[Rfam]
RNA sequence: AGCCUGGGAUGAACUGCUUUAAUUUCUGUCACCUUGUAUGAAAGCUGCACAUACAGUCUGAUUAUUUUGCAAGACUAAGACUG
Numbered sequence: 001a002g003c004c005u006g007g008g009a010u011g012a013a014c015u016g017c018u019u020u021a022a023u024u025u026c027u028g029u030c031a032c033c034u035u036g037u038a039u040g041a042a043a044g045c046u047g048c049a050c051a052u053a054c055a056g057u058c059u060g061a062u063u064a065u066u067u068u069g070c071a072a073g074a075c076u077a078a079g080a081c082u083g
Stems, first nucleotide, its partner, number of pairs: 001082002004079001044057004
Dot-bracket structure: ((.(.......................................((((......)))).....................).)).
RNA: Small nucleolar RNA SNORD60
Organism: Prolemur simus